Notes: SAH (S-adenosyl-L-homocysteine) riboswitch aptamer: a 90-nucleotide RNA sequence from Denitratisoma sp. DHT3.

RNA sequence: UAUUCCGAGAGGCGCUGCAGCAGCUAUUCCUAUCUGGGAAGAACUGUCAGGCUCGGAACGACAAGUUGUAAGAAACGGCGCCUGUUCAAC
Number, nucleotide and partner (000 for none) at each position: 001u000002a000003u058004u057005c056006c055007g054008a053009g000010a000011g000012g000013c000014g000015c000016u000017g000018c000019a000020g000021c046022a045023g044024c000025u042026a000027u000028u000029c000030c000031u000032a000033u000034c000035u000036g000037g000038g000039a000040a000041g000042a025043a000044c023045u022046g021047u000048c000049a000050g000051g000052c000053u008054c007055g006056g005057a004058a003059c000060g000061a000062c000063a000064a000065g000066u000067u000068g000069u000070a000071a000072g000073a000074a000075a000076c000077g000078g000079c000080g000081c000082c000083u000084g000085u000086u000087c000088a000089a000090c000
Rfam links the family to the GO terms regulation of gene expression and S-adenosylhomocysteine metabolic process. The family's consensus secondary structure is taken from published work.